This 83-nucleotide RNA from Exobacillus caeni belongs to the Rfam family "c-di-GMP-I-GGC riboswitch aptamer".
The match comes from Rfam's covariance-model search (62 bits).
Its family is annotated with cyclic-di-GMP binding in the Gene Ontology.
The organism belongs to Exobacillus, within Bacteria.

RNA sequence: CCAGAAAAAGGCAAACCGGCUGAAAAGCAGGGACGCAAAGUUACAGAUCUACGGCAUCUGCUAGGAUGGCUGAGCUACCUGGA
Numbered sequence: 001c002c003a004g005a006a007a008a009a010g011g012c013a014a015a016c017c018g019g020c021u022g023a024a025a026a027g028c029a030g031g032g033a034c035g036c037a038a039a040g041u042u043a044c045a046g047a048u049c050u051a052c053g054g055c056a057u058c059u060g061c062u063a064g065g066a067u068g069g070c071u072g073a074g075c076u077a078c079c080u081g082g083a
Base pairs, nucleotide, nucleotide: 003080004079011036012035016031017030019028020027021026034069039076040075041074042073044072045071046070047067048066049065